[Rfam]
RNA: Bacterial RNase P class B
Organism: Lactococcus allomyrinae
Nucleotides: 378
Stems, first nucleotide, its partner, number of pairs: 004378003007374001008339007016036006041372003045369005050247005055073004060069002079242003083238001084105006106125001107123004112118001126237002130176003137168004144162008184235002186231003200219008251268003272302007303324005343355004
Number, partner (000 for none) and nucleotide at each position: 001000g002000u003000u004378u005377u006376c007374g008339g009338a010337u011336a012335a013334u014333c015000g016036c017035g018034c019033g020032a021031u022000u023000u024000u025000u026000u027000a028000a029000a030000a031021a032020u033019c034018g035017u036016g037000a038000g039000g040000a041372a042371a043370g044000u045369c046368c047367a048366u049365g050247c051246u052245c053244g054243c055073g056072c057071g058070u059000u060069g061068c062000u063000g064000a065000g066000a067000u068061g069060c070058a071057c072056g073055c074000a075000g076000u077000g078000u079242u080241u081240g082000u083238g084105c085104u086103a087102g088101g089100u090000u091000a092000a093000a094000c095000a096000a097000u098000a099000a100089a101088c102087c103086u104085a105084g106125g107123u108122a109121g110120g111000a112118g113000c114000g115000u116000c117000a118112u119000g120110c121109c122108u123107a124000a125106c126237g127236g128000c129000u130176g131175g132174c133000g134000a135000a136000a137168u138167c139166a140165c141000u142000a143000a144162g145161u146160u147159u148158u149157u150156g151155a152000u153000u154000u155151u156150c157149a158148a159147a160146a161145a162144u163000a164000u165140g166139u167138g168137a169000a170000a171000g172000u173000a174132g175131c176130c177000u178000a179000u180000a181000a182000a183000a184235g185234u186231g187230c188229c189000a190000u191000a192000g193000a194000g195000a196000c197000g198000a199000g200219u201218c202217u203216u204215g205214c206213g207212g208000g209000a210000a211000a212207c213206c214205g215204u216203a217202a218201g219200a220000a221000u222000g223000g224000a225000a226000c227000g228000u229188g230187g231186u232000a233000a234185a235184c236127c237126c238083c239000u240081c241080a242079a243054g244053c245052g246051a247050g248000c249000a250000a251268c252267c253266c254000a255000a256000a257000c258000u259000u260000a261000u262000g263000g264000u265000c266253g267252g268251g269000g270000c271000a272302c273301u274300u275299a276298a277297c278296u279000a280000g281000c282000u283000g284000a285000a286000a287000u288000g289000a290000a291000a292000g293000c294000g295000u296278g297277g298276u299275u300274g301273a302272g303324g304323c305322u306321g307320a308000u309000u310000u311000c312000u313000u314000c315000g316000g317000a318000u319000u320307u321306u322305g323304g324303c325000a326000g327000a328000c329000a330000g331000a332000u333014g334013g335012u336011u337010a338009u339008c340000g341000a342000a343355g344354g345353u346352c347000u348000u349000u350000u351000a352346g353345a354344c355343u356000g357000g358000a359000a360000c361000a362000a363000a364000a365049c366048a367047u368046g369045g370043c371042u372041u373000a374007u375000a376006g377005a378004a